[Rfam]
RNA sequence: GUGAAAUGAUGAUUUAGUUUAUCCAUUCGCUGAGUGCGCUGCACUGACCUCCUUCCAGGCCUUAGUUCCUGUUCUAGGAACUCCAGGCUGCGUAGCCUCCAAAUGCCCUGCUGUCUGCAGUGUUCUACUGCUGACGGCUGGGUGUUUCUAGACUACUGGUGAGGCUGGUUGGUGUCAGCAGGGAUGGGUCCCUCAGGUACCAUCUCACAAAGAUGAGUGGUGAAAAUCUGAUCAC
Numbered sequence: 001g002u003g004a005a006a007u008g009a010u011g012a013u014u015u016a017g018u019u020u021a022u023c024c025a026u027u028c029g030c031u032g033a034g035u036g037c038g039c040u041g042c043a044c045u046g047a048c049c050u051c052c053u054u055c056c057a058g059g060c061c062u063u064a065g066u067u068c069c070u071g072u073u074c075u076a077g078g079a080a081c082u083c084c085a086g087g088c089u090g091c092g093u094a095g096c097c098u099c100c101a102a103a104u105g106c107c108c109u110g111c112u113g114u115c116u117g118c119a120g121u122g123u124u125c126u127a128c129u130g131c132u133g134a135c136g137g138c139u140g141g142g143u144g145u146u147u148c149u150a151g152a153c154u155a156c157u158g159g160u161g162a163g164g165c166u167g168g169u170u171g172g173u174g175u176c177a178g179c180a181g182g183g184a185u186g187g188g189u190c191c192c193u194c195a196g197g198u199a200c201c202a203u204c205u206c207a208c209a210a211a212g213a214u215g216a217g218u219g220g221u222g223a224a225a226a227u228c229u230g231a232u233c234a235c
Stems, first nucleotide, its partner, number of pairs: 010234005017227004023220007030212002034208002038179004042174008051164004055159002058089005065081006092156004097151002105143003110138006117131006181206007190197002